[Rfam]
RNA sequence: GGGUUUAUGAUGAUAAAACUUUAGCGGAUUUCAGUGAGACUCUUUGGGUCUAUGAACUUAUCCAUUGUUACACACACUGAAGCCC
Number, nucleotide and partner (000 for none) at each position: 001g085002g084003g083004u082005u081006u000007a000008u000009g000010a000011u000012g000013a000014u000015a000016a000017a000018a000019c000020u000021u000022u000023a000024g000025c000026g000027g000028a000029u000030u000031u000032c000033a000034g000035u000036g000037a000038g000039a000040c000041u000042c000043u000044u000045u000046g000047g000048g000049u000050c000051u000052a000053u000054g000055a000056a000057c000058u000059u000060a000061u000062c000063c000064a000065u000066u000067g000068u000069u000070a000071c000072a000073c000074a000075c000076a000077c000078u000079g000080a000081a005082g004083c003084c002085c001
Overview:
This 85-nucleotide RNA from Kingdonia uniflora belongs to the Rfam family "Small nucleolar RNA R11/Z151". The family's RNA type in Rfam is C/D-box small nucleolar RNA. Taxonomically the source falls in Kingdonia (Eukaryota, Streptophytina, Embryophyta, Euphyllophyta). The family's consensus secondary structure was predicted with PFOLD.